[Rfam]
RNA sequence: AUGUUAUCAAGAAAGGCAGAGGGACUAGACCCGGUGAAGCCUUAGCAACCCUUUUUCUAAUUUAUAAAGAAAAUGAAGGUGCUACAUUCUACUGCAAAAGCAGAUAGAUAACCC
Numbered sequence: 001a002u003g004u005u006a007u008c009a010a011g012a013a014a015g016g017c018a019g020a021g022g023g024a025c026u027a028g029a030c031c032c033g034g035u036g037a038a039g040c041c042u043u044a045g046c047a048a049c050c051c052u053u054u055u056u057c058u059a060a061u062u063u064a065u066a067a068a069g070a071a072a073a074u075g076a077a078g079g080u081g082c083u084a085c086a087u088u089c090u091a092c093u094g095c096a097a098a099a100g101c102a103g104a105u106a107g108a109u110a111a112c113c114c
Stems, first nucleotide, its partner, number of pairs: 003112006013043005021032003026091004044083004049079002051075001053073006087106001092103004
RNA: SAM riboswitch aptamer (S box leader)